[Rfam]
Source information: This 45-nucleotide RNA sequence from Sanguibacter sp. HDW7 belongs to the Rfam family "Guanidine-II riboswitch aptamer (mini-ykkC)".
RNA sequence: CGUCCGGGACGACCCGGACGUCCCUCACGGGCCGAGGACGACCUC
Numbered sequence: 001c002g003u004c005c006g007g008g009a010c011g012a013c014c015c016g017g018a019c020g021u022c023c024c025u026c027a028c029g030g031g032c033c034g035a036g037g038a039c040g041a042c043c044u045c
Stems, first nucleotide, its partner, number of pairs: 001020008034045004

A reference for the family is Weinberg et al. (2007), "Identification of 22 candidate structured RNAs in bacteria using the CMfinder comparative genomics pipeline", Nucleic Acids Res. It scores 41 bits against the family's covariance model. Simpler in structure and has fewer highly conserved nucleotide positions than the ykkC-yxkD leader. Despite this each of its two stem-loop structures directly bind free guanidine.